[Rfam]
RNA: L31-Actinobacteria ribosomal protein leader
Organism: Actinospineispora acaciae
RNA sequence: UCGGUUCCGGUUCACCCCCGCCCGCCGAGGCGGGGGACCCGGCGACC
Numbered sequence: 001u002c003g004g005u006u007c008c009g010g011u012u013c014a015c016c017c018c019c020g021c022c023c024g025c026c027g028a029g030g031c032g033g034g035g036g037a038c039c040c041g042g043c044g045a046c047c
Stems, first nucleotide, its partner, number of pairs: 003047003007042004015036008